[Rfam]
A member of the RNA family "FuFi-1 RNA", 159 nucleotides long.
RNA sequence: CUUACCAGCGAGAAGGCCAUGCGCAGAACCAAAACUGCGAAAGUGGUAAGGCUCCAGAAGAACUUGUAGCACCAUUGCAAGCGGCGAAAGCCUGCACGGGGCAAAGGGUAAACAAAUUUGGACAUUGGCCGGUGGGAAUGGUGCUCCCGCCGGUCUUAU
Numbered sequence: 001c002u003u004a005c006c007a008g009c010g011a012g013a014a015g016g017c018c019a020u021g022c023g024c025a026g027a028a029c030c031a032a033a034a035c036u037g038c039g040a041a042a043g044u045g046g047u048a049a050g051g052c053u054c055c056a057g058a059a060g061a062a063c064u065u066g067u068a069g070c071a072c073c074a075u076u077g078c079a080a081g082c083g084g085c086g087a088a089a090g091c092c093u094g095c096a097c098g099g100g101g102c103a104a105a106g107g108g109u110a111a112a113c114a115a116a117u118u119u120g121g122a123c124a125u126u127g128g129c130c131g132g133u134g135g136g137a138a139u140g141g142u143g144c145u146c147c148c149g150c151c152g153g154u155c156u157u158a159u
Base pairs, nucleotide, nucleotide: 001050002049003048004047005046006045007044022039023038024037025036026035029121030120031119032118033117051102052101053100054099055098063081064080065079066078067077068076069144070143071142072141073140074139075138083092084091085090127155128154129153130152131151132150133149134148135147136146137145
It is annotated as a small RNA.